[Rfam]
RNA sequence: UUCAUACUCGCCAAAUGGAAAGGCACUUGACUCAAAAUCGAGAAUAUACGGGUUCAAAUCCCGUGUGUGAAA
Numbered sequence: 001u002u003c004a005u006a007c008u009c010g011c012c013a014a015a016u017g018g019a020a021a022g023g024c025a026c027u028u029g030a031c032u033c034a035a036a037a038u039c040g041a042g043a044a045u046a047u048a049c050g051g052g053u054u055c056a057a058a059u060c061c062c063g064u065g066u067g068u069g070a071a072a
Base pairs, nucleotide, nucleotide: 001071002070003069004068005067006066007065010024011023012022026042027041028040029039030038048064049063050062051061052060
RNA: tRNA
Organism: Moorena producens